[Rfam]
RNA sequence: AACAAGGGCCUUUGCCGUUCAUGGCACAUGGGAUGGUCAAUUUGGACGCAAGUCCUGUGCGGAAUCACAGUUAAGAGAUUUCAGAGGCAACAUUUUUAUAGACUGAGGCAGCUGAUGCUCAUAAGGUUUGGCACCCUG
Numbered sequence: 001a002a003c004a005a006g007g008g009c010c011u012u013u014g015c016c017g018u019u020c021a022u023g024g025c026a027c028a029u030g031g032g033a034u035g036g037u038c039a040a041u042u043u044g045g046a047c048g049c050a051a052g053u054c055c056u057g058u059g060c061g062g063a064a065u066c067a068c069a070g071u072u073a074a075g076a077g078a079u080u081u082c083a084g085a086g087g088c089a090a091c092a093u094u095u096u097u098a099u100a101g102a103c104u105g106a107g108g109c110a111g112c113u114g115a116u117g118c119u120c121a122u123a124a125g126g127u128u129u130g131g132c133a134c135c136c137u138g
Stems, first nucleotide, its partner, number of pairs: 008088005013026005027059008061082006107135002111132005117127003
Background:
A member of the RNA family "U11 spliceosomal RNA" from Candidula unifasciata, 138 nucleotides long. The family has 72 seed sequences and 2,595 matches in Rfam 15.1. The match comes from Rfam's covariance-model search (73 bits). Rfam classes the family as a spliceosomal small nuclear RNA. Taxonomically the source falls in Candidula (Eukaryota, Opisthokonta, Euthyneura, Helicoidea). A reference for the family is Montzka and Steitz (1988), "Additional low-abundance human small nuclear ribonucleoproteins: U11, U12, etc", Proc Natl Acad Sci U S A.